[Rfam]
Small nucleolar RNA SNORA68: a 133-nucleotide RNA from Equus caballus. Rfam's curators write: U68 is a member of the H/ACA class of small nucleolar RNAs (snoRNAs) which act as guides in the the modification of uridines to pseudouridines.
RNA sequence: CAGGCACCUAAACCCAAGAACUGCUGUUUCUUGUAGCAGCGGUUUAAACACAGGUGCUAACAGCAAGCGGAUCCUGUCGCCUUUGAGGGGCUGUGGCUGUGCCCCUCAAAGUGAAUUUGGAGAUUCUACACCU
Numbered sequence: 001c002a003g004g005c006a007c008c009u010a011a012a013c014c015c016a017a018g019a020a021c022u023g024c025u026g027u028u029u030c031u032u033g034u035a036g037c038a039g040c041g042g043u044u045u046a047a048a049c050a051c052a053g054g055u056g057c058u059a060a061c062a063g064c065a066a067g068c069g070g071a072u073c074c075u076g077u078c079g080c081c082u083u084u085g086a087g088g089g090g091c092u093g094u095g096g097c098u099g100u101g102c103c104c105c106u107c108a109a110a111g112u113g114a115a116u117u118u119g120g121a122g123a124u125u126c127u128a129c130a131c132c133u
Stems, first nucleotide, its partner, number of pairs: 003058007019044010069126005075120001081111011
Dot-bracket structure: ..(((((((.........((((((((((......)))))))))).......)))))))..........(((((.(.....(((((((((((.........)))))))))))........).))))).......

The match comes from Rfam's covariance-model search (143 bits). By type it is an H/ACA-box small nucleolar RNA. The base pairs follow the family's consensus structure, which was predicted with PFOLD. The family has 26 seed sequences and 1,079 matches in Rfam 15.1.